mir-999 microRNA precursor family: an 81-nucleotide RNA sequence from Muraenolepis orangiensis. Pairs were carried over by alignment from the consensus structure, which was predicted with RNAalifold.
[Rfam]
RNA sequence: GGAAUGCAGACUGACAUAGUGUUACAGUUAGUGUUUAUUAUACAUAAACACUAACUGUAACACUAUGUCAGUCUGCAUUCC
Numbered sequence: 001g002g003a004a005u006g007c008a009g010a011c012u013g014a015c016a017u018a019g020u021g022u023u024a025c026a027g028u029u030a031g032u033g034u035u036u037a038u039u040a041u042a043c044a045u046a047a048a049c050a051c052u053a054a055c056u057g058u059a060a061c062a063c064u065a066u067g068u069c070a071g072u073c074u075g076c077a078u079u080c081c
Stems, first nucleotide, its partner, number of pairs: 003079009013069009023059006030052007
The family has 5 seed sequences and 56 matches in Rfam 15.1. Taxonomically the source falls in Muraenolepis (Eukaryota, Euteleostomi, Paracanthopterygii, Muraenolepididae). A reference for the family is Stark et al. (2007), "Systematic discovery and characterization of fly microRNAs using 12 Drosophila genomes", Genome Res.